The family of this 121-nucleotide RNA sequence from Labeo rohita is "Small nucleolar RNA SNORA26".
The literature on the family includes a 2001 paper in EMBO J by Huttenhofer et al., "RNomics: an experimental approach that identifies 201 candidates for novel, small, non-messenger RNAs in mouse".
Lineage of the source: Eukaryota > Deuterostomia > Cyprinoidei > Labeonini > Labeo.
The family's consensus secondary structure was predicted with RNAalifold.
Its family is annotated with RNA processing and nucleolus in the Gene Ontology.
RNA sequence: AAGCACAUUCAAGUCUUAUUAUAUCUUGAAUGAUCAAAGGGGAGGGGUAGAUGAAUUCUCUCUAAAACCUGAAGUAUUGGCUUAAUAUUCCUUGCUUCGGAUCCUGUCGGGAGAAACACUU
Numbered sequence: 001a002a003g004c005a006c007a008u009u010c011a012a013g014u015c016u017u018a019u020u021a022u023a024u025c026u027u028g029a030a031u032g033a034u035c036a037a038a039g040g041g042g043a044g045g046g047g048u049a050g051a052u053g054a055a056u057u058c059u060c061u062c063u064a065a066a067a068c069c070u071g072a073a074g075u076a077u078u079g080g081c082u083u084a085a086u087a088u089u090c091c092u093u094g095c096u097u098c099g100g101a102u103c104c105u106g107u108c109g110g111g112a113g114a115a116a117c118a119c120u121u
Stems, first nucleotide, its partner, number of pairs: 003048002006045001008043003014038001016036001019030001056115001058113005069100007079091002